[Rfam]
RNA sequence: GAUAACCAAAAAUAGUCGCGGGAUUUAGAGUAGGAUCGGUGACGACGCGCACAUCUUGAAUAUUAACGUCAUAAAGUCCCCCAAAGAACAUCGCCUUAGCUACUAAAGCCAAUGCACCUAAACCCAGAAACAAUAAAUGAUGACCCAGAAUAAUUCCUAAUUGUUUGGUAUCACCCCA
Number, nucleotide and partner (000 for none) at each position: 001g000002a000003u000004a000005a000006c000007c000008a000009a000010a000011a000012a000013u000014a000015g000016u000017c000018g000019c000020g000021g000022g000023a000024u000025u000026u000027a000028g000029a000030g000031u000032a000033g000034g000035a000036u000037c000038g000039g000040u000041g000042a000043c000044g000045a000046c000047g000048c000049g000050c000051a000052c000053a000054u000055c000056u000057u000058g000059a000060a000061u000062a000063u000064u000065a000066a000067c000068g000069u000070c000071a000072u000073a000074a000075a000076g000077u000078c000079c000080c000081c000082c000083a000084a000085a000086g000087a000088a000089c000090a000091u000092c000093g000094c000095c000096u000097u000098a000099g000100c000101u000102a000103c000104u000105a000106a000107a000108g000109c000110c000111a000112a000113u000114g000115c000116a000117c000118c000119u000120a000121a000122a000123c000124c000125c000126a000127g000128a000129a000130a000131c000132a000133a000134u000135a000136a000137a000138u173139g172140a171141u170142g000143a000144c000145c168146c167147a166148g165149a000150a000151u000152a000153a000154u000155u000156c000157c000158u000159a000160a000161u000162u000163g000164u000165u148166u147167g146168g145169u000170a141171u140172c139173a138174c000175c000176c000177c000178a000
Rfam assigns this 178-nucleotide RNA from Pleurocapsa sp. CCALA 161 to the family "Antisense RNA which regulates isiA expression". Lineage of the source: Bacteria > Cyanobacteriota > Pleurocapsales > Pleurocapsaceae > Pleurocapsa. A reference for the family is Duhring et al. (2006), "An internal antisense RNA regulates expression of the photosynthesis gene isiA", Proc Natl Acad Sci U S A. A search with the family's covariance model found it, with a score of 131 bits. The base pairs follow the family's consensus structure, which was predicted with PFOLD.